[Rfam]
RNA sequence: ACAUUGAUCAUUUUUGAGAUUUGCAAUUUUGAUAAUUAUUGAAAGAAUUGCAUAGUCACAAAAGUGAUGGAUGU
Numbered sequence: 001a002c003a004u005u006g007a008u009c010a011u012u013u014u015u016g017a018g019a020u021u022u023g024c025a026a027u028u029u030u031g032a033u034a035a036u037u038a039u040u041g042a043a044a045g046a047a048u049u050g051c052a053u054a055g056u057c058a059c060a061a062a063a064g065u066g067a068u069g070g071a072u073g074u
Stems, first nucleotide, its partner, number of pairs: 002073004008067009018057003022052007

mir-153 microRNA precursor family: a 74-nucleotide RNA from Leptotrombidium deliense. NCBI's taxonomy places the organism under Eukaryota, Bilateria, Chelicerata, Trombiculidae, Leptotrombidium. Its family is annotated with RISC complex and miRNA-mediated post-transcriptional gene silencing in the Gene Ontology. The literature on the family includes a 2009 paper in Mol Reprod Dev by Tesfaye et al., "Identification and expression profiling of microRNAs during bovine oocyte maturation using heterologous approach".